[Rfam]
RNA sequence: GGGCUGUGAUGAGUAUUAGAGAAAGUCAUGCACCACUCUGAUGAUUAAGUGUUGAUAAGUUUCUCAUACCCAUUAAACCUGAGCCC
Number, nucleotide and partner (000 for none) at each position: 001g086002g085003g084004c083005u000006g000007u000008g000009a000010u000011g000012a000013g000014u000015a000016u000017u000018a000019g000020a000021g000022a000023a000024a000025g000026u000027c000028a000029u000030g000031c000032a000033c000034c000035a000036c000037u000038c000039u000040g000041a000042u000043g000044a000045u000046u000047a000048a000049g000050u000051g000052u000053u000054g000055a000056u000057a000058a000059g000060u000061u000062u000063c000064u000065c000066a000067u000068a000069c000070c000071c000072a000073u000074u000075a000076a000077a000078c000079c000080u000081g000082a000083g004084c003085c002086c001
Background: Shown here is an 86-nucleotide RNA sequence from Arachis hypogaea, a member of the family "Small nucleolar RNA Z221/R21b". Pairs were carried over by alignment from the consensus structure, which was predicted with WAR. Its family is annotated with RNA processing and nucleolus in the Gene Ontology. It scores 73 bits against the family's covariance model.